[Rfam]
RNA: MIR7502 microRNA precursor family
Organism: Gossypium armourianum
RNA sequence: AGUUAAAAUUUUCAAGCAAUUCUAUUGUUAAAAGCCGGCAUGGCUAAUAGAAUAACCCGACAAUACCUCAUUCUGACGUACAAGGACCAGUUUUUAAUAGUAGAAAUGAAUGGAAUUUUUAACA
Numbered sequence: 001a002g003u004u005a006a007a008a009u010u011u012u013c014a015a016g017c018a019a020u021u022c023u024a025u026u027g028u029u030a031a032a033a034g035c036c037g038g039c040a041u042g043g044c045u046a047a048u049a050g051a052a053u054a055a056c057c058c059g060a061c062a063a064u065a066c067c068u069c070a071u072u073c074u075g076a077c078g079u080a081c082a083a084g085g086a087c088c089a090g091u092u093u094u095u096a097a098u099a100g101u102a103g104a105a106a107u108g109a110a111u112g113g114a115a116u117u118u119u120u121a122a123c124a
Stems, first nucleotide, its partner, number of pairs: 002123007010115005018107001020105007028097006